Notes:
The record is a 60-nucleotide RNA from Pandoraea thiooxydans, which matches "Betaproteobacteria toxic small RNA" in Rfam. Pairs were carried over by alignment from the consensus structure, which was predicted with WAR. Lineage of the source: Bacteria > Pseudomonadati > Burkholderiales > Burkholderiaceae > Pandoraea. On this family, see Sass et al., Sci Rep 2017: "Identification of small RNAs abundant in Burkholderia cenocepacia biofilms reveal putative regulators with a potential role in carbon and iron metabolism". Overexpression in amino aid rich medium attenuates growth, suggesting role in repressing amino acid intake and metabolism.
RNA sequence: UGUCUCCUCCACCUCCUCCUGGUGGAUUUUAUGGCCAGCAGAUUGCUGGCCAUUUUUUUU
Numbered sequence: 001u002g003u004c005u006c007c008u009c010c011a012c013c014u015c016c017u018c019c020u021g022g023u024g025g026a027u028u029u030u031a032u033g034g035c036c037a038g039c040a041g042a043u044u045g046c047u048g049g050c051c052a053u054u055u056u057u058u059u060u
Base pairs, nucleotide, nucleotide: 008026009025010024011023012022013021031053032052033051034050035049036048037047038046